[Rfam]
RNA: Ribosomal protein L10 leader
RNA sequence: CCAAACUAAAUAGCCAAGCCGGAGACAGCAGGAGCCUUGUGCUUAAUACCCUGCCGAGGUUUGAUUCUGUUAGCGGCGGCUUGCGUUAUGCGAGCUAGCCAGACAGUUGAGAACUGUGAAACUCCGGCUUUAAAGCUCGGAGUUUUUUAAUGGGCAG
Numbered sequence: 001c002c003a004a005a006c007u008a009a010a011u012a013g014c015c016a017a018g019c020c021g022g023a024g025a026c027a028g029c030a031g032g033a034g035c036c037u038u039g040u041g042c043u044u045a046a047u048a049c050c051c052u053g054c055c056g057a058g059g060u061u062u063g064a065u066u067c068u069g070u071u072a073g074c075g076g077c078g079g080c081u082u083g084c085g086u087u088a089u090g091c092g093a094g095c096u097a098g099c100c101a102g103a104c105a106g107u108u109g110a111g112a113a114c115u116g117u118g119a120a121a122c123u124c125c126g127g128c129u130u131u132a133a134a135g136c137u138c139g140g141a142g143u144u145u146u147u148u149a150a151u152g153g154g155c156a157g
Stems, first nucleotide, its partner, number of pairs: 028054005034042002122142006128135002